[Rfam]
RNA sequence: UACACCUGUGUAUGUUUUUAUGGACAAAGACCAACAUACGGGACAAAAAAUAAAUUCUUUAGCAACCCAGGGCUUUUUGAUCAGUAUGAGUUUUGAUACAUGCAAGCAGGAAUAGG
Numbered sequence: 001u002a003c004a005c006c007u008g009u010g011u012a013u014g015u016u017u018u019u020a021u022g023g024a025c026a027a028a029g030a031c032c033a034a035c036a037u038a039c040g041g042g043a044c045a046a047a048a049a050a051u052a053a054a055u056u057c058u059u060u061a062g063c064a065a066c067c068c069a070g071g072g073c074u075u076u077u078u079g080a081u082c083a084g085u086a087u088g089a090g091u092u093u094u095g096a097u098a099c100a101u102g103c104a105a106g107c108a109g110g111a112a113u114a115g116g
Stems, first nucleotide, its partner, number of pairs: 001045001005042005011036001014031006054113005060105001062103001068095008077086001
This 116-nucleotide RNA from Oryctolagus cuniculus belongs to the Rfam family "Small nucleolar RNA SNORA40". Rfam's curators write: The snoRNA ACA 40 belongs to the H/ACA family of snoRNAs and guides the pseudouridylation of 28S rRNA subunit at position U4565. NB This family has a high threshold value to exclude a large number of closely related sequences that do not appear to have conserved H and ACA boxes, and may be pseudogenes. Pairs were carried over by alignment from the consensus structure, which was predicted with RNAalifold. Rfam links the family to the GO terms RNA processing and nucleolus. The literature on the family includes a 1997 paper in J Mol Biol by Ofengand and Bakin, "Mapping to nucleotide resolution of pseudouridine residues in large subunit ribosomal RNAs from representative eukaryotes, prokaryotes, archaebacteria, mitochondria and chloroplasts". Rfam 15.1 lists 2,550 matches to the family in 517 species.